[Rfam]
RNA: Small nucleolar RNA Z266
Organism: Eragrostis curvula
RNA sequence: GAUUGGCAAGAGUGAUGAAUCAAUUAGAUGUGCGAAGAAAGCUUAUGAGCUUAACCUUUGAGGCAUAAAAUUUUGUCUGACCUGCCAAUC
Numbered sequence: 001g002a003u004u005g006g007c008a009a010g011a012g013u014g015a016u017g018a019a020u021c022a023a024u025u026a027g028a029u030g031u032g033c034g035a036a037g038a039a040a041g042c043u044u045a046u047g048a049g050c051u052u053a054a055c056c057u058u059u060g061a062g063g064c065a066u067a068a069a070a071u072u073u074u075g076u077c078u079g080a081c082c083u084g085c086c087a088a089u090c
Base pairs, nucleotide, nucleotide: 001090002089003088004087005086006085007084008083010081